[Rfam]
RNA: mir-3492 microRNA precursor family
RNA sequence: AACUUUAUGAAUCUGUGCUAAGAUCUUCUCAGACAUCGACCCACCAAGAGUGAUGAAACUUCCGAGAUAAGUAAAGUG
Numbered sequence: 001a002a003c004u005u006u007a008u009g010a011a012u013c014u015g016u017g018c019u020a021a022g023a024u025c026u027u028c029u030c031a032g033a034c035a036u037c038g039a040c041c042c043a044c045c046a047a048g049a050g051u052g053a054u055g056a057a058a059c060u061u062c063c064g065a066g067a068u069a070a071g072u073a074a075a076g077u078g
Stems, first nucleotide, its partner, number of pairs: 002077005008071001011068003016064002020061003024058001026056002029053002